MIR1435 microRNA precursor family: a 164-nucleotide sequence from Oryza rufipogon. Gene Ontology terms of the family: RISC complex and miRNA-mediated post-transcriptional gene silencing. It scores 96 bits against the family's covariance model. The base pairs follow the family's consensus structure, which was predicted with RNAalifold. Taxonomically the source falls in Oryza (Eukaryota, Streptophyta, Mesangiospermae, Poales).
RNA sequence: UGGAUUUGUCCUAAGUCAAACUUCUUCAAGUUUGGCCAACUUUAUAAAAAAAUGUAGUAGCAUUUCCAACACAACAAAUAUAUUAAUUUGGUAUUGUAGAUGUUGCUACGUUUUUUCUAUAAACUUGGUCAAACUUAAAGAAGUGUGACUUAGGACAAACCCAU
Numbered sequence: 001u002g003g004a005u006u007u008g009u010c011c012u013a014a015g016u017c018a019a020a021c022u023u024c025u026u027c028a029a030g031u032u033u034g035g036c037c038a039a040c041u042u043u044a045u046a047a048a049a050a051a052a053u054g055u056a057g058u059a060g061c062a063u064u065u066c067c068a069a070c071a072c073a074a075c076a077a078a079u080a081u082a083u084u085a086a087u088u089u090g091g092u093a094u095u096g097u098a099g100a101u102g103u104u105g106c107u108a109c110g111u112u113u114u115u116u117c118u119a120u121a122a123a124c125u126u127g128g129u130c131a132a133a134c135u136u137a138a139a140g141a142a143g144u145g146u147g148a149c150u151u152a153g154g155a156c157a158a159a160c161c162c163a164u
Stems, first nucleotide, its partner, number of pairs: 005159005011153008020144007031133005043119002046116005055108003059104007067096002072090003